The family of this 109-nucleotide sequence from Hibiscus trionum is "Small nucleolar RNA snoR97".
RNA sequence: UGCAUCUUUUGGUUUUGGAGUCUGAAAAAACUCGAAUAAUUUUGUGCUGUCAUCAGCUUCGUCUCUAGCAAUUUGUACGAGAUUGGAGUUAAAUAGCAGCACUAAAUUU
Numbered sequence: 001u002g003c004a005u006c007u008u009u010u011g012g013u014u015u016u017g018g019a020g021u022c023u024g025a026a027a028a029a030a031c032u033c034g035a036a037u038a039a040u041u042u043u044g045u046g047c048u049g050u051c052a053u054c055a056g057c058u059u060c061g062u063c064u065c066u067a068g069c070a071a072u073u074u075g076u077a078c079g080a081g082a083u084u085g086g087a088g089u090u091a092a093a094u095a096g097c098a099g100c101a102c103u104a105a106a107u108u109u
Stems, first nucleotide, its partner, number of pairs: 044102006055090006062082004
Source information
The literature on the family includes a 2002 paper in Curr Biol by Marker et al., "Experimental RNomics: identification of 140 candidates for small non-messenger RNAs in the plant Arabidopsis thaliana". Pairs were carried over by alignment from the consensus structure, which was predicted with WAR. The source organism's lineage runs through Eukaryota, Viridiplantae, rosids, malvids and Hibiscus. Rfam links the family to the GO terms nucleolus and RNA processing. The family's RNA type in Rfam is H/ACA-box small nucleolar RNA.